RNA sequence: UUAUAAGCAAAAGUUGCUUUUUAGAUUCAUUGAAUAACUGAUGAAUCUGGACAAUAAUAUAGUCCAGAUUCAUCAGUUAUUCAAUGAAUCUAAAAAGCAAUUUUUGCUUAUAA
Numbered sequence: 001u002u003a004u005a006a007g008c009a010a011a012a013g014u015u016g017c018u019u020u021u022u023a024g025a026u027u028c029a030u031u032g033a034a035u036a037a038c039u040g041a042u043g044a045a046u047c048u049g050g051a052c053a054a055u056a057a058u059a060u061a062g063u064c065c066a067g068a069u070u071c072a073u074c075a076g077u078u079a080u081u082c083a084a085u086g087a088a089u090c091u092a093a094a095a096a097g098c099a100a101u102u103u104u105u106g107c108u109u110a111u112a113a
Stems, first nucleotide, its partner, number of pairs: 002112006009105016026088018048066004